[Rfam]
Notes:
The record is a 170-nucleotide RNA sequence from Glutamicibacter sp. BW77, which matches "c-di-AMP riboswitch aptamer (ydaO/yuaA leader)" in Rfam. Gene Ontology terms of the family: regulation of gene expression and cyclic-di-AMP binding. The base pairs follow the family's consensus structure. The source organism's lineage runs through Bacteria, Bacillati, Actinomycetota, Actinomycetes and Glutamicibacter.
RNA sequence: UGAGCAGUUAUACACAACUCGUACGGCAGUGACGGGGGAACCAACAUCGGGUCGUUAGUUUUGACUAACAACCCUAGGGGUUAAGUGGACAAGAAGGAAACUUCGAAUCCACCGAGGUAACUCCACUUCGAACCCGACAGCUUACCUCGUAGGAAUCAAGGAGAGGCAUU
Numbered sequence: 001u002g003a004g005c006a007g008u009u010a011u012a013c014a015c016a017a018c019u020c021g022u023a024c025g026g027c028a029g030u031g032a033c034g035g036g037g038g039a040a041c042c043a044a045c046a047u048c049g050g051g052u053c054g055u056u057a058g059u060u061u062u063g064a065c066u067a068a069c070a071a072c073c074c075u076a077g078g079g080g081u082u083a084a085g086u087g088g089a090c091a092a093g094a095a096g097g098a099a100a101c102u103u104c105g106a107a108u109c110c111a112c113c114g115a116g117g118u119a120a121c122u123c124c125a126c127u128u129c130g131a132a133c134c135c136g137a138c139a140g141c142u143u144a145c146c147u148c149g150u151a152g153g154a155a156u157c158a159a160g161g162a163g164a165g166g167c168a169u170u
Stems, first nucleotide, its partner, number of pairs: 001152001005031002032150006042077001078135003086111004114129004